[Rfam]
RNA sequence: AUGAUGGAUUCGGGAGAGACUGCACAGGCAGCGCCGAAGGGGAAGCGAAGAACUCUCAGGCAAAAGAACCGGAUACUGGAC
Numbered sequence: 001a002u003g004a005u006g007g008a009u010u011c012g013g014g015a016g017a018g019a020c021u022g023c024a025c026a027g028g029c030a031g032c033g034c035c036g037a038a039g040g041g042g043a044a045g046c047g048a049a050g051a052a053c054u055c056u057c058a059g060g061c062a063a064a065a066g067a068a069c070c071g072g073a074u075a076c077u078g079g080a081c
Base pairs, nucleotide, nucleotide: 006076008074009073010072011071012070013069020031021030022029023028033061034060035059036057037056040055041054042053
This 81-nucleotide RNA from Enterocloster bolteae belongs to the Rfam family "Glycine riboswitch aptamer". A search with the family's covariance model found it, with a score of 55 bits.